Description
A member of the RNA family "Small nucleolar RNA SNORA1" from Octodon degus, 133 nucleotides long. Taxonomically the source falls in Octodon (Eukaryota, Deuterostomia, Sarcopterygii, Eutheria). The base pairs follow the family's consensus structure, which was predicted with PFOLD.
[Rfam]
RNA sequence: AGCCUCAUUCUGGAUUAGAAUGGGCACUGUUGAUCGGUGUUCAGAAUUGGUCCAUGUGGCUAAAAUUGAGACACAGUUCAUGCUUCCAUCACAGUAAAUAUUUACAGUGGUGACAAUGAGGCUUGUAACAUUU
Numbered sequence: 001a002g003c004c005u006c007a008u009u010c011u012g013g014a015u016u017a018g019a020a021u022g023g024g025c026a027c028u029g030u031u032g033a034u035c036g037g038u039g040u041u042c043a044g045a046a047u048u049g050g051u052c053c054a055u056g057u058g059g060c061u062a063a064a065a066u067u068g069a070g071a072c073a074c075a076g077u078u079c080a081u082g083c084u085u086c087c088a089u090c091a092c093a094g095u096a097a098a099u100a101u102u103u104a105c106a107g108u109g110g111u112g113a114c115a116a117u118g119a120g121g122c123u124u125g126u127a128a129c130a131u132u133u
Base pairs, nucleotide, nucleotide: 002060003059004058006056007055008054021043022042023041024040025039026038027037073126074125075124076123087112088111089110090109091108092107